[Rfam]
RNA sequence: CGCCUGGUCGGAAACCAGGCCAAUCAAGGGAG
Dot-bracket structure: .(((((((.....)))))))............
Rfam assigns this 32-nucleotide RNA sequence to the family "L31-Coriobacteria ribosomal protein leader". Rfam classes the family as a cis-regulatory leader. Pairs were carried over by alignment from the consensus structure, which is taken from published work. On this family, see Eckert and Weinberg, BMC Microbiol 2020: "Discovery of 20 novel ribosomal leader candidates in bacteria and archaea". Its Rfam clan is "Ribosomal Protein L31 Leader clan".